RNA: Purine riboswitch aptamer
Organism: Marinilactibacillus sp. 15R
RNA sequence: GAAUCUAUAAAUGAUACGUCUAAUAUAGUUUAGCGAUAUGGGCUAACGUUUCUACCAAUCACCUUAAAAGAUUGACUAUUGGACCUAAUAAAGAAUGC
Numbered sequence: 001g002a003a004u005c006u007a008u009a010a011a012u013g014a015u016a017c018g019u020c021u022a023a024u025a026u027a028g029u030u031u032a033g034c035g036a037u038a039u040g041g042g043c044u045a046a047c048g049u050u051u052c053u054a055c056c057a058a059u060c061a062c063c064u065u066a067a068a069a070g071a072u073u074g075a076c077u078a079u080u081g082g083a084c085c086u087a088a089u090a091a092a093g094a095a096u097g098c
Base pairs, nucleotide, nucleotide: 018084019083020082021081022080023079024078025077030046031045032044033043034042056074057073058072059071060070